[Rfam]
RNA sequence: UCCUGUCUCGCGAAAAGUGGUCCUUGCGACCGCCUGCCCUCCAUCUAUAAGUGAUGGAAGGGAUAGCGAGGCGGGUUAUU
Dot-bracket structure: .(((((.((((.....((((((.....))))))...((((..................))))...)))).))))).....

The record is an 80-nucleotide RNA sequence, which matches "DUF3800-IX RNA" in Rfam.
It is one of the family's seed sequences.
It is annotated as a small RNA.
From the family's description: Actinobacteria, Firmicutes (1 example), Nitrospirae, Proteobacteria, Verrucomicrobia (1 example).
The family's consensus secondary structure is taken from published work.